The family of this 140-nucleotide RNA from Zea mays is "Small nucleolar RNA F1/F2/snoR5a". Rfam's curators write: This family contains F1, F2 and snoR5a sequences, all of which are members of the the H/ACA class of snoRNA that guide the sites of modification of uridines to pseudouridines. The organism belongs to Zea, within Eukaryota. Rfam links the family to the GO terms nucleolus and RNA processing. The match comes from Rfam's covariance-model search (132 bits). The family's RNA type in Rfam is H/ACA-box small nucleolar RNA.
Nucleotides: 140
Base pairs, nucleotide, nucleotide: 004062005061006060007059008058009057019049020048021047023045024044025043026042027041028040029039076133077132078131079130080129091118092117093116094115095114098111
Number, partner (000 for none) and nucleotide at each position: 001000c002000a003000a004062u005061g006060c007059c008058a009057u010000u011000u012000g013000g014000u015000a016000u017000c018000u019049g020048a021047c022000u023045c024044g025043c026042a027041g028040u029039c030000a031000u032000u033000u034000u035000u036000c037000g038000u039029g040028a041027u042026u043025g044024u045023g046000u047021g048020u049019c050000u051000c052000g053000a054000a055000a056000c057009a058008u059007g060006g061005c062004a063000g064000a065000a066000a067000a068000c069000a070000a071000a072000g073000g074000g075000g076133a077132a078131u079130g080129g081000a082000u083000c084000u085000u086000g087000c088000g089000a090000c091118a092117c093116u094115g095114g096000u097000u098111g099000a100000c101000c102000a103000u104000u105000u106000a107000u108000g109000a110000g111098c112000u113000u114095c115094c116093a117092g118091u119000u120000a121000c122000u123000a124000u125000a126000u127000g128000c129080c130079c131078g132077u133076u134000u135000a136000c137000a138000u139000u140000a